A member of the RNA family "skipping-rope RNA", 80 nucleotides long. The base pairs follow the family's consensus structure, which is taken from published work.

RNA sequence: GCUAUUCGAGGUGAGAAAGGUUCCUCACACGCUACAUUAGUAGUCAAUAGAGAUGCAGGAUUGCCGACCUGCCGAAUAGC
Numbered sequence: 001g002c003u004a005u006u007c008g009a010g011g012u013g014a015g016a017a018a019g020g021u022u023c024c025u026c027a028c029a030c031g032c033u034a035c036a037u038u039a040g041u042a043g044u045c046a047a048u049a050g051a052g053a054u055g056c057a058g059g060a061u062u063g064c065c066g067a068c069c070u071g072c073c074g075a076a077u078a079g080c
Stems, first nucleotide, its partner, number of pairs: 001080008011028005019065003030050001031044004055072005